RNA sequence: GGUCGCAAGCUUGAGGCCACAGCAGAAGUGCUCAUGGUGUGGCCCUGUCAGAUUUCAGCAAAUCUGCGAAUUCUGCU
Numbered sequence: 001g002g003u004c005g006c007a008a009g010c011u012u013g014a015g016g017c018c019a020c021a022g023c024a025g026a027a028g029u030g031c032u033c034a035u036g037g038u039g040u041g042g043c044c045c046u047g048u049c050a051g052a053u054u055u056c057a058g059c060a061a062a063u064c065u066g067c068g069a070a071u072u073c074u075g076c077u
Stems, first nucleotide, its partner, number of pairs: 013045001015044004021077007028040003049066007
About this RNA: A member of the RNA family "Mammalian CPEB3 ribozyme" from Crocodylus porosus, 77 nucleotides long. A search with the family's covariance model found it, with a score of 59 bits. Lineage of the source: Eukaryota > Opisthokonta > Deuterostomia > Euteleostomi > Crocodylus.